[Rfam]
RNA sequence: AUUAGGAGGAAACAUCAUGAACGAAGUGAAUGAUUAAGAUUGUUCCCGACGACCUGCCGCCGAACGAAUGUGAGGGGGCGAUACAUAUU
Numbered sequence: 001a002u003u004a005g006g007a008g009g010a011a012a013c014a015u016c017a018u019g020a021a022c023g024a025a026g027u028g029a030a031u032g033a034u035u036a037a038g039a040u041u042g043u044u045c046c047c048g049a050c051g052a053c054c055u056g057c058c059g060c061c062g063a064a065c066g067a068a069u070g071u072g073a074g075g076g077g078g079c080g081a082u083a084c085a086u087a088u089u
Stems, first nucleotide, its partner, number of pairs: 008047002011044003016032003021027001056079003060075002064071002
RNA: GA-cis RNA